The family of this 89-nucleotide sequence from Monodelphis domestica is "Small nucleolar RNA SNORD111". It is annotated as a C/D-box small nucleolar RNA.

RNA sequence: UUGCCUGAAAUGAUGAUUAUUUCAUGAAUCUUCUCUGAAACUUUUUUCUCUGAAGACAAAAACUUACCUCUCUGAAUCUGAUCGGGCAC
Numbered sequence: 001u002u003g004c005c006u007g008a009a010a011u012g013a014u015g016a017u018u019a020u021u022u023c024a025u026g027a028a029u030c031u032u033c034u035c036u037g038a039a040a041c042u043u044u045u046u047u048c049u050c051u052g053a054a055g056a057c058a059a060a061a062a063c064u065u066a067c068c069u070c071u072c073u074g075a076a077u078c079u080g081a082u083c084g085g086g087c088a089c
Stems, first nucleotide, its partner, number of pairs: 002088006